Rfam assigns this 66-nucleotide sequence from Bombyx mori to the family "mir-2774 microRNA precursor family".
RNA sequence: ACAACAUUCGGACUGUCGGUCUACCGAGCAAUAUCACUCGCUCGCUGGAAGAUCUUCCUACGAUAU
Numbered sequence: 001a002c003a004a005c006a007u008u009c010g011g012a013c014u015g016u017c018g019g020u021c022u023a024c025c026g027a028g029c030a031a032u033a034u035c036a037c038u039c040g041c042u043c044g045c046u047g048g049a050a051g052a053u054c055u056u057c058c059u060a061c062g063a064u065a066u
Stems, first nucleotide, its partner, number of pairs: 004064001010058003015053003020049004025044005
The match comes from Rfam's covariance-model search (65 bits). The literature on the family includes a 2010 paper in BMC Genomics by Liu et al., "MicroRNAs of Bombyx mori identified by Solexa sequencing".